The family of this 74-nucleotide RNA from a Pirellulaceae bacterium is "tRNA". Lineage of the source: Bacteria > Pseudomonadati > Planctomycetia > Pirellulales > Pirellulaceae. The family's RNA type in Rfam is transfer RNA.
RNA sequence: GGGCGGUUAGCUCAGUUGGUUAGAGCGCGUCGCUGAUAACGACGAGGUCACAAGUUCGACUCUUGUACCGCCCA
Numbered sequence: 001g002g003g004c005g006g007u008u009a010g011c012u013c014a015g016u017u018g019g020u021u022a023g024a025g026c027g028c029g030u031c032g033c034u035g036a037u038a039a040c041g042a043c044g045a046g047g048u049c050a051c052a053a054g055u056u057c058g059a060c061u062c063u064u065g066u067a068c069c070g071c072c073c074a
Stems, first nucleotide, its partner, number of pairs: 001073007010026004028044005050066005

Record summary:
The base pairs follow the family's consensus structure, which is taken from published work. Rfam links the family to the GO term triplet codon-amino acid adaptor activity.